[Rfam]
RNA sequence: AUUAUCCUUCGGGGCAGGGUGGAAUUCCCUACCGGCGGUGAUGAGGCGCAAUGCUUCAAAGUCCGUGACCCGGUGGCGCAUGCCAGCGGUGGAUCCAGUGAGAUUCUGGAGCCGACAGUUAAAGUCUGGAUGGGAGAAGGAUCGA
Numbered sequence: 001a002u003u004a005u006c007c008u009u010c011g012g013g014g015c016a017g018g019g020u021g022g023a024a025u026u027c028c029c030u031a032c033c034g035g036c037g038g039u040g041a042u043g044a045g046g047c048g049c050a051a052u053g054c055u056u057c058a059a060a061g062u063c064c065g066u067g068a069c070c071c072g073g074u075g076g077c078g079c080a081u082g083c084c085a086g087c088g089g090u091g092g093a094u095c096c097a098g099u100g101a102g103a104u105u106c107u108g109g110a111g112c113c114g115a116c117a118g119u120u121a122a123a124g125u126c127u128g129g130a131u132g133g134g135a136g137a138a139g140g141a142u143c144g145a
Stems, first nucleotide, its partner, number of pairs: 004142007017029003031125002033114002035066004061112002070089002094110005116128003

Rfam assigns this 145-nucleotide sequence from Bacillus sp. SJS to the family "FMN riboswitch aptamer (RFN element)". Taxonomically the source falls in Bacillus (Bacteria, Bacilli, Caryophanales, Bacillaceae). Rfam links the family to the GO term FMN binding. The family's consensus secondary structure is taken from published work.